[Rfam]
RNA: c-di-GMP-I riboswitch aptamer
RNA sequence: CGCAGAGAAAAGCAUACCUAUUGAAAAGUAGGAACGCAAAGUUACAGGUCUAAAGUAUGUUAACUAUGACGGCUGGGCUGCCUGG
Numbered sequence: 001c002g003c004a005g006a007g008a009a010a011a012g013c014a015u016a017c018c019u020a021u022u023g024a025a026a027a028g029u030a031g032g033a034a035c036g037c038a039a040a041g042u043u044a045c046a047g048g049u050c051u052a053a054a055g056u057a058u059g060u061u062a063a064c065u066a067u068g069a070c071g072g073c074u075g076g077g078c079u080g081c082c083u084g085g
Base pairs, nucleotide, nucleotide: 012037013036017032018031019030020029021028022027040079041078042077043076045075046074047073048070049069050068055064056063